A member of the RNA family "COG2827 RNA", 75 nucleotides long.

RNA sequence: GCCGGUGCUUUUCAUAGAUCAGGGAAACCUGGGCGGCGCAUGCUGUACUUGCAAGCAGCAGGCACCGCCUACAUA
Numbered sequence: 001g002c003c004g005g006u007g008c009u010u011u012u013c014a015u016a017g018a019u020c021a022g023g024g025a026a027a028c029c030u031g032g033g034c035g036g037c038g039c040a041u042g043c044u045g046u047a048c049u050u051g052c053a054a055g056c057a058g059c060a061g062g063c064a065c066c067g068c069c070u071a072c073a074u075a
Stems, first nucleotide, its partner, number of pairs: 020031004032069005038063002041060005